[Rfam]
PyrR binding site: a 119-nucleotide RNA from Litchfieldia stipae. The family's RNA type in Rfam is cis-regulatory element. From the family's description: This family represents the PyrR binding site and terminator structure. For this family Rfam cites "Molecular recognition of pyr mRNA by the Bacillus subtilis attenuation regulatory protein PyrR" (Bonner et al., Nucleic Acids Res, 2001). Pairs were carried over by alignment from the consensus structure, which is taken from published work.

RNA sequence: AGAACCUUUAAUGAACAGUCCCGAGAGGCUGAGAAGGGAACGGAUAAAUAAUGAAGGAUAGGUUAACUAUGUCUUCAUUUCCAAAACCCCUCUGCCCUUCGCAAGAGGGGUUUUUGUGU
Numbered sequence: 001a002g003a004a005c006c007u008u009u010a011a012u013g014a015a016c017a018g019u020c021c022c023g024a025g026a027g028g029c030u031g032a033g034a035a036g037g038g039a040a041c042g043g044a045u046a047a048a049u050a051a052u053g054a055a056g057g058a059u060a061g062g063u064u065a066a067c068u069a070u071g072u073c074u075u076c077a078u079u080u081c082c083a084a085a086a087c088c089c090c091u092c093u094g095c096c097c098u099u100c101g102c103a104a105g106a107g108g109g110g111u112u113u114u115u116g117u118g119u
Stems, first nucleotide, its partner, number of pairs: 005037005016031005050079008061068002083114011096101001